A member of the RNA family "Eukaryotic large subunit ribosomal RNA" from Entamoeba invadens, 281 nucleotides of a longer RNA. Taxonomically the source falls in Entamoeba (Eukaryota, Evosea, Archamoebae, Endamoebidae). Rfam's curators put it in the seed alignment.
RNA sequence: CGGAUUAUUUUCAAUACCGUUCCUGGAAAGGAGGGGGAGGCUGGAUUUUUUUUCAUAAUUUGACGAAUGAGGAAUUGGAUUCAUAUACCCCUGAAUGGAAAGGGACUAGAGAUUGACAAGAAUGAGAUACCACAUGGUAGCGGGGUGGAUAAGAGAUUUUUCAACUUGGAGUGCUAGGAAAAUAGGUGCGAGAGAGAGAAAUACUACGAAGAUAAGAGUGAUAAGAAUGCAAAAUUGUAGAGUUAGUAGGGCGGAAAUAAUCUGCCCGUCUUGAAACACGG
Numbered sequence: 001c002g003g004a005u006u007a008u009u010u011u012c013a014a015u016a017c018c019g020u021u022c023c024u025g026g027a028a029a030g031g032a033g034g035g036g037g038a039g040g041c042u043g044g045a046u047u048u049u050u051u052u053u054c055a056u057a058a059u060u061u062g063a064c065g066a067a068u069g070a071g072g073a074a075u076u077g078g079a080u081u082c083a084u085a086u087a088c089c090c091c092u093g094a095a096u097g098g099a100a101a102g103g104g105a106c107u108a109g110a111g112a113u114u115g116a117c118a119a120g121a122a123u124g125a126g127a128u129a130c131c132a133c134a135u136g137g138u139a140g141c142g143g144g145g146u147g148g149a150u151a152a153g154a155g156a157u158u159u160u161u162c163a164a165c166u167u168g169g170a171g172u173g174c175u176a177g178g179a180a181a182a183u184a185g186g187u188g189c190g191a192g193a194g195a196g197a198g199a200a201a202u203a204c205u206a207c208g209a210a211g212a213u214a215a216g217a218g219u220g221a222u223a224a225g226a227a228u229g230c231a232a233a234a235u236u237g238u239a240g241a242g243u244u245a246g247u248a249g250g251g252c253g254g255a256a257a258u259a260a261u262c263u264g265c266c267c268g269u270c271u272u273g274a275a276a277c278a279c280g281g
Stems, first nucleotide, its partner, number of pairs: 001264012017071001018069005075246004080241002266281004